RNA sequence: AUUCUGCAAUUAGUUUCCCUUCGUAUAACCCUAAUAAUAUGGAUUAGGGGUCUCUACCAGGAACCAAUAAUUCCUGAUUACGAAGAGUUUAGUACUUUAG
Numbered sequence: 001a002u003u004c005u006g007c008a009a010u011u012a013g014u015u016u017c018c019c020u021u022c023g024u025a026u027a028a029c030c031c032u033a034a035u036a037a038u039a040u041g042g043a044u045u046a047g048g049g050g051u052c053u054c055u056a057c058c059a060g061g062a063a064c065c066a067a068u069a070a071u072u073c074c075u076g077a078u079u080a081c082g083a084a085g086a087g088u089u090u091a092g093u094a095c096u097u098u099a100g
Stems, first nucleotide, its partner, number of pairs: 019085007029049007058076006
Purine riboswitch aptamer: a 100-nucleotide RNA from Moritella sp. PE36. Taxonomically the source falls in Moritella (Bacteria, Pseudomonadota, Gammaproteobacteria, Alteromonadales). The family's consensus secondary structure is taken from published work.